[Rfam]
Source information
The record is a 127-nucleotide RNA sequence from Felis catus, which matches "Small nucleolar RNA SNORD22" in Rfam. Rfam's curators put it in the seed alignment. The source organism's lineage runs through Eukaryota, Teleostomi, Laurasiatheria, Felidae and Felis. Rfam classes the family as a C/D-box small nucleolar RNA.
RNA sequence: UGCCAAUGAAGAGAGCAAGCAUCCUGUCUUACCCCUGUUCUAGCCCCAGAGCCAGUAAUGGUGAACCCACUGGGGCUAACUGGGUGAGAGGAUGAGAAUUUGUUCCAUAAGGAACUGUCUGAGGUAC
Numbered sequence: 001u002g003c004c005a006a007u008g009a010a011g012a013g014a015g016c017a018a019g020c021a022u023c024c025u026g027u028c029u030u031a032c033c034c035c036u037g038u039u040c041u042a043g044c045c046c047c048a049g050a051g052c053c054a055g056u057a058a059u060g061g062u063g064a065a066c067c068c069a070c071u072g073g074g075g076c077u078a079a080c081u082g083g084g085u086g087a088g089a090g091g092a093u094g095a096g097a098a099u100u101u102g103u104u105c106c107a108u109a110a111g112g113a114a115c116u117g118u119c120u121g122a123g124g125u126a127c
Base pairs, nucleotide, nucleotide: 001126002125003124004123